The family of this 97-nucleotide RNA from Candidatus Synechococcus spongiarum is "Bacterial small signal recognition particle RNA". The signal recognition particle (SRP) is a universally conserved ribonucleoprotein involved in the co-translational targeting of proteins to membranes. It is annotated as a non-coding RNA gene. Its family is annotated with signal recognition particle, plasma membrane targeting and SRP-dependent cotranslational protein targeting to membrane, signal sequence recognition in the Gene Ontology. Pairs were carried over by alignment from the consensus structure, which is taken from published work.

RNA sequence: GACUCGGACCCAUGCGUUCCAGACGCCCAAACCUGGUCAGAGCCGGAAGGCAGCAGCCACACGGGAUGCUCGGGAUUGGCGUGGGCUCCGGGUCACC
Dot-bracket structure: ...(((((((((((...(((.(...(((.....((((....(((....)))....))))...))).....).)))....)))))).)))))......